[Rfam]
Nucleotides: 351
Base pairs, nucleotide, nucleotide: 040053041052042051043050044049057188058187059186060185061184067181068180069177070176071175072174081166082165085163086162087161091107092106093105094104095103108148109147110146111145112144113143114142189204190203191202192201195214196213198212199211200210317332318331319330320329323348324347325346326345327344328343
Number, partner (000 for none) and nucleotide at each position: 001000c002000c003000c004000u005000u006000u007000g008000a009000a010000u011000u012000c013000c014000g015000g016000a017000c018000g019000g020000c021000c022000a023000g024000c025000g026000c027000c028000u029000a030000u031000a032000u033000c034000c035000g036000g037000g038000a039000u040053g041052u042051c043050g044049g045000g046000c047000a048000a049044c050043c051042g052041a053040c054000u055000a056000u057188g058187g059186a060185c061184a062000u063000a064000a065000a066000c067181g068180c069177g070176c071175u072174c073000g074000u075000a076000a077000u078000a079000a080000g081166c082165g083000g084000a085163u086162c087161g088000g089000a090000c091107c092106c093105g094104g095103g096000g097000g098000c099000g100000g101000u102000a103095c104094c105093c106092g107091g108148c109147g110146g111145c112144u113143c114142c115000a116000c117000c118000a119000a120000a121000c122000a123000u124000c125000c126000c127000u128000u129000g130000u131000u132000g133000g134000g135000g136000g137000a138000u139000c140000a141000u142114g143113g144112g145111g146110c147109u148108g149000a150000a151000a152000c153000a154000g155000g156000a157000u158000c159000g160000a161087c162086g163085a164000a165082c166081g167000u168000c169000u170000a171000a172000a173000g174072g175071g176070g177069u178000u179000u180068g181067c182000u183000u184061u185060g186059u187058c188057c189204c190203g191202g192201u193000g194000a195214g196213u197000u198212a199211c200210c201192a202191c203190c204189g205000u206000u207000a208000u209000c210200g211199g212198u213196a214195c215000g216000c217000u218000a219000a220000g221000c222000a223000u224000a225000a226000u227000u228000g229000c230000c231000a232000a233000c234000a235000a236000c237000a238000a239000u240000c241000g242000u243000g244000c245000u246000c247000c248000g249000a250000u251000g252000g253000c254000u255000c256000u257000g258000g259000c260000c261000g262000c263000g264000u265000a266000a267000g268000c269000g270000g271000u272000u273000c274000g275000a276000u277000c278000u279000a280000u281000c282000g283000a284000a285000u286000c287000u288000u289000a290000a291000g292000c293000c294000c295000u296000u297000g298000c299000g300000c301000c302000u303000a304000g305000c306000a307000g308000c309000g310000u311000a312000a313000g314000g315000c316000g317332g318331g319330g320329u321000u322000c323348g324347c325346a326345g327344g328343u329320a330319c331318c332317u333000g334000g335000c336000a337000a338000c339000a340000g341000a342000a343328a344327c345326c346325u347324g348323c349000a350000u351000u